A member of the RNA family "Potassium channel RNA editing signal" from Silurus meridionalis, 114 nucleotides long.
The family's RNA type in Rfam is cis-regulatory element.
Gene Ontology term of the family: adenosine to inosine editing.
A search with the family's covariance model found it, with a score of 103 bits.
Lineage of the source: Eukaryota > Metazoa > Craniata > Otophysi > Silurus.
[Rfam]
RNA sequence: UUGGGUUAUGGAGACAUGUACCCACAGACAUGGUCGGGCAUGCUAGUGGGUGCACUGUGUGCCCUGGCUGGUGUGCUUACCAUUGCCAUGCCUGUCCCAGUCAUCGUCAAUAAC
Numbered sequence: 001u002u003g004g005g006u007u008a009u010g011g012a013g014a015c016a017u018g019u020a021c022c023c024a025c026a027g028a029c030a031u032g033g034u035c036g037g038g039c040a041u042g043c044u045a046g047u048g049g050g051u052g053c054a055c056u057g058u059g060u061g062c063c064c065u066g067g068c069u070g071g072u073g074u075g076c077u078u079a080c081c082a083u084u085g086c087c088a089u090g091c092c093u094g095u096c097c098c099a100g101u102c103a104u105c106g107u108c109a110a111u112a113a114c
Stems, first nucleotide, its partner, number of pairs: 002113001004111001008107004013102003018097001020095002037077004049063003